[Rfam]
RNA: Potassium channel RNA editing signal
Organism: Astyanax mexicanus
RNA sequence: GUGGGAUAUGGUGAUAUGAAGCCCAUCACGGUGGGUGGCAAGAUUGUGGGUUCGCUGUGCGCCAUCGCUGGAGUACUGACCAUCGCCCUGCCCGUACCCGUCAUUGUGUCCAAC
Numbered sequence: 001g002u003g004g005g006a007u008a009u010g011g012u013g014a015u016a017u018g019a020a021g022c023c024c025a026u027c028a029c030g031g032u033g034g035g036u037g038g039c040a041a042g043a044u045u046g047u048g049g050g051u052u053c054g055c056u057g058u059g060c061g062c063c064a065u066c067g068c069u070g071g072a073g074u075a076c077u078g079a080c081c082a083u084c085g086c087c088c089u090g091c092c093c094g095u096a097c098c099c100g101u102c103a104u105u106g107u108g109u110c111c112a113a114c
Base pairs, nucleotide, nucleotide: 001114002113004111005110007108008107009106010105011104013102014101015100018097020095037077038076040074049063050062051061